[Rfam]
This 246-nucleotide sequence from Trypanosoma cruzi belongs to the Rfam family "Protozoan signal recognition particle RNA". The source organism's lineage runs through Eukaryota, Discoba, Euglenozoa, Kinetoplastea and Trypanosoma cruzi. By type it is a non-coding RNA gene. The base pairs follow the family's consensus structure, which is taken from published work. The literature on the family includes a 2003 paper in Nucleic Acids Res by Rosenblad et al., "SRPDB: Signal Recognition Particle Database".
RNA sequence: GACUCUGUAACCUCCUUGUGCGAGGGGCUUGGGUAUCGAGCGGCGAAAGUGUGGACAAGCGAAAGCUCUGCUGCGUAGACUUGGUGUUCUGCUUGGUUGCGCGUCGGUUCCAAUCAUGAAGGUGCCACUGAAGAGAGGCUCCUUCAAACCGUUAAAGCAAAGGAAACGUGUCAGGCCGGAAACGGAGCAGCUCACCUUGCGCGCGUUGCCGUUGCAGAAGCACACCGAGGAGCAAGUCAGGUCUUC
Numbered sequence: 001g002a003c004u005c006u007g008u009a010a011c012c013u014c015c016u017u018g019u020g021c022g023a024g025g026g027g028c029u030u031g032g033g034u035a036u037c038g039a040g041c042g043g044c045g046a047a048a049g050u051g052u053g054g055a056c057a058a059g060c061g062a063a064a065g066c067u068c069u070g071c072u073g074c075g076u077a078g079a080c081u082u083g084g085u086g087u088u089c090u091g092c093u094u095g096g097u098u099g100c101g102c103g104u105c106g107g108u109u110c111c112a113a114u115c116a117u118g119a120a121g122g123u124g125c126c127a128c129u130g131a132a133g134a135g136a137g138g139c140u141c142c143u144u145c146a147a148a149c150c151g152u153u154a155a156a157g158c159a160a161a162g163g164a165a166a167c168g169u170g171u172c173a174g175g176c177c178g179g180a181a182a183c184g185g186a187g188c189a190g191c192u193c194a195c196c197u198u199g200c201g202c203g204c205g206u207u208g209c210c211g212u213u214g215c216a217g218a219a220g221c222a223c224a225c226c227g228a229g230g231a232g233c234a235a236g237u238c239a240g241g242u243c244u245u246c
Stems, first nucleotide, its partner, number of pairs: 011025004061246003065243001067241004080229008088218005095210003099206006105151005118145005124139003128135002152156001157200003161197003168193001170191002176185003